This 92-nucleotide RNA sequence from Nitratireductor sp. StC3 belongs to the Rfam family "Rhizobiales sRNA Atu_Ti1". The family's RNA type in Rfam is small RNA.
RNA sequence: GUCCAUGUUGCGGCGGACCAGGCAAACGCUCCUCCCAAGACGAGCGUUGUGAUCGGCCAGACCUUUGUCGUCAUGACGAGGAGGCCGAUCGC
Numbered sequence: 001g002u003c004c005a006u007g008u009u010g011c012g013g014c015g016g017a018c019c020a021g022g023c024a025a026a027c028g029c030u031c032c033u034c035c036c037a038a039g040a041c042g043a044g045c046g047u048u049g050u051g052a053u054c055g056g057c058c059a060g061a062c063c064u065u066u067g068u069c070g071u072c073a074u075g076a077c078g079a080g081g082a083g084g085c086c087g088a089u090c091g092c
Base pairs, nucleotide, nucleotide: 001018002017003016004015026047027046028045029044031039049092050091051090052089053088054087055086056085057084058083063081064080065079066078067077068076069075
It scores 57 bits against the family's covariance model. A reference for the family is Wilms et al. (2012), "Deep sequencing uncovers numerous small RNAs on all four replicons of the plant pathogen Agrobacterium tumefaciens", RNA Biol.